Shown here is a 164-nucleotide sequence from Bombilactobacillus apium, a member of the family "Listeria sRNA rli38". A search with the family's covariance model found it, with a score of 51 bits. It is annotated as a small RNA.
RNA sequence: AUUGAGUGGGAGUAGAAGGUACAUGCUAAUUGAACCCGGAAUGUUGAUUUAACGGCGUUUUCGGGAGAUACAAAGGAUACGAUUGGCGGGGAAAUUGUUACGUUCCCCGCCAAGAUCCCCGCCAAGUUUGGGCCGAAUGAGGGCUGAGCUGGCGGGGAUUUUUU
Numbered sequence: 001a002u003u004g005a006g007u008g009g010g011a012g013u014a015g016a017a018g019g020u021a022c023a024u025g026c027u028a029a030u031u032g033a034a035c036c037c038g039g040a041a042u043g044u045u046g047a048u049u050u051a052a053c054g055g056c057g058u059u060u061u062c063g064g065g066a067g068a069u070a071c072a073a074a075g076g077a078u079a080c081g082a083u084u085g086g087c088g089g090g091g092a093a094a095u096u097g098u099u100a101c102g103u104u105c106c107c108c109g110c111c112a113a114g115a116u117c118c119c120c121g122c123c124a125a126g127u128u129u130g131g132g133c134c135g136a137a138u139g140a141g142g143g144c145u146g147a148g149c150u151g152g153c154g155g156g157g158a159u160u161u162u163u164u
Stems, first nucleotide, its partner, number of pairs: 008107005049085001051083001053081002057078002060075002064071001086098004114160011